Notes
The record is a 78-nucleotide RNA sequence from Scleropages formosus, which matches "mir-460 microRNA precursor family" in Rfam. Rfam 15.1 lists 1,029 matches to the family in 498 species. For this family Rfam cites "The developmental miRNA profiles of zebrafish as determined by small RNA cloning" (Chen et al., Genes Dev, 2005). It scores 58 bits against the family's covariance model.
RNA sequence: GUCCCCGGCCUCCUCAUUGUGCAUGCUGUGUGUCUGCGGUGCUUCCCGCACAGCGCCUGCAAUGUGGAGGUGGAGGAU
Numbered sequence: 001g002u003c004c005c006c007g008g009c010c011u012c013c014u015c016a017u018u019g020u021g022c023a024u025g026c027u028g029u030g031u032g033u034c035u036g037c038g039g040u041g042c043u044u045c046c047c048g049c050a051c052a053g054c055g056c057c058u059g060c061a062a063u064g065u066g067g068a069g070g071u072g073g074a075g076g077a078u
Stems, first nucleotide, its partner, number of pairs: 012067002015064007024055001026053006